[Rfam]
RNA sequence: UUAAACGCAAUGAAGAGAAGAGUAGAUUACAUGAUUCUAUACAGAGAGCUCUGUUAGCUGAAAAGGAGCAAGAAUAGUGUAAUCGAAACAAGCCUCCGAGCUGUACAUUGGAGCCGAAUGUGGUGAUGGUGUAACGGGUGCUCCCGUUAUAGAGCUUAGGGUAUAAGCAGUUCAUGCCGUACCCGAUAAGAGUGAUGUGGCGACACAUGACUAAACUGGGGUGGCACCGCGAUAAGUAAUCUCGCCCCCAGG
Numbered sequence: 001u002u003a004a005a006c007g008c009a010a011u012g013a014a015g016a017g018a019a020g021a022g023u024a025g026a027u028u029a030c031a032u033g034a035u036u037c038u039a040u041a042c043a044g045a046g047a048g049c050u051c052u053g054u055u056a057g058c059u060g061a062a063a064a065g066g067a068g069c070a071a072g073a074a075u076a077g078u079g080u081a082a083u084c085g086a087a088a089c090a091a092g093c094c095u096c097c098g099a100g101c102u103g104u105a106c107a108u109u110g111g112a113g114c115c116g117a118a119u120g121u122g123g124u125g126a127u128g129g130u131g132u133a134a135c136g137g138g139u140g141c142u143c144c145c146g147u148u149a150u151a152g153a154g155c156u157u158a159g160g161g162u163a164u165a166a167g168c169a170g171u172u173c174a175u176g177c178c179g180u181a182c183c184c185g186a187u188a189a190g191a192g193u194g195a196u197g198u199g200g201c202g203a204c205a206c207a208u209g210a211c212u213a214a215a216c217u218g219g220g221g222u223g224g225c226a227c228c229g230c231g232a233u234a235a236g237u238a239a240u241c242u243c244g245c246c247c248c249c250a251g252g
Stems, first nucleotide, its partner, number of pairs: 007101002015096003025084006037072002048069004052064001104133007135146003195208005218249004229245004
A member of the RNA family "T-box leader" from Guptibacillus hwajinpoensis, 252 nucleotides long. Rfam classes the family as a cis-regulatory leader. A reference for the family is Grundy et al. (1994), "Interaction between the acceptor end of tRNA and the T box stimulates antitermination in the Bacillus subtilis tyrS gene: a new role for the discriminator base", J Bacteriol. It scores 109 bits against the family's covariance model. The base pairs follow the family's consensus structure, which is taken from published work.